[Rfam]
Nucleotides: 177
Stems, first nucleotide, its partner, number of pairs: 007171005016079005024071001032064008083112012113140005120133003142162007
Number, partner (000 for none) and nucleotide at each position: 001000a002000u003000g004000u005000u006000u007171u008170g009169a010168u011167g012000a013000g014000g015000c016079g017078c018077a019076u020075c021000a022000a023000u024071c025000a026000u027000g028000a029000g030000u031000a032064a033063c034062u035061u036060u037059u038058u039057c040000u041000a042000u043000a044000u045000g046000a047000c048000u049000g050000c051000a052000a053000u054000c055000u056000a057039g058038a059037g060036g061035a062034a063033g064032u065000g066000a067000a068000a069000g070000g071024g072000u073000g074000c075020g076019a077018u078017g079016c080000c081000g082000a083112a084111a085110c086109g087108u088107a089106a090105u091104g092103u093102u094101u095000u096000u097000g098000c099000a100000g101094a102093a103092a104091u105090a106089u107088u108087a109086u110085g111084u112083u113140g114139g115138a116137c117136g118000u119000a120133u121132a122131g123000g124000u125000u126000a127000a128000g129000a130000g131122c132121u133120a134000a135000u136117u137116g138115u139114c140113u141000g142162u143161c144160a145159u146158u147157a148156u149000c150000u151000u152000u153000a154000g155000a156148a157147u158146a159145a160144u161143g162142g163000a164000g165000u166000g167011c168010a169009u170008c171007a172000c173000u174000u175000g176000u177000a